A member of the RNA family "Group II catalytic intron D1-D4-7" from Mucilaginibacter gotjawali, 148 nucleotides long. Group II introns are found in rRNA, tRNA and mRNA of organelles in fungi, plants and protists, and also in mRNA in bacteria. Taxonomically the source falls in Mucilaginibacter (Bacteria, Sphingobacteriia, Sphingobacteriales, Sphingobacteriaceae). A search with the family's covariance model found it, with a score of 102 bits. For this family Rfam cites "The ins and outs of group II introns" (Bonen and Vogel, Trends Genet, 2001).
[Rfam]
RNA sequence: CCUGCUGUUUCGUCAGCAGUAACCUACUGGCACAUGCAUUACUGGUAACGGUUUUGUAUGAAGUUGCCGGGAUAAAGUGCCCUUUCGCGAUGAAGGAGCAAAAGCCGUGAGGCUAAGCAACAAUCUUUAGUACUAUAAGAUUAGGGUA
Numbered sequence: 001c002c003u004g005c006u007g008u009u010u011c012g013u014c015a016g017c018a019g020u021a022a023c024c025u026a027c028u029g030g031c032a033c034a035u036g037c038a039u040u041a042c043u044g045g046u047a048a049c050g051g052u053u054u055u056g057u058a059u060g061a062a063g064u065u066g067c068c069g070g071g072a073u074a075a076a077g078u079g080c081c082c083u084u085u086c087g088c089g090a091u092g093a094a095g096g097a098g099c100a101a102a103a104g105c106c107g108u109g110a111g112g113c114u115a116a117g118c119a120a121c122a123a124u125c126u127u128u129a130g131u132a133c134u135a136u137a138a139g140a141u142u143a144g145g146g147u148a
Stems, first nucleotide, its partner, number of pairs: 002019006028069005033060006041052004082096006098118002105112002123141005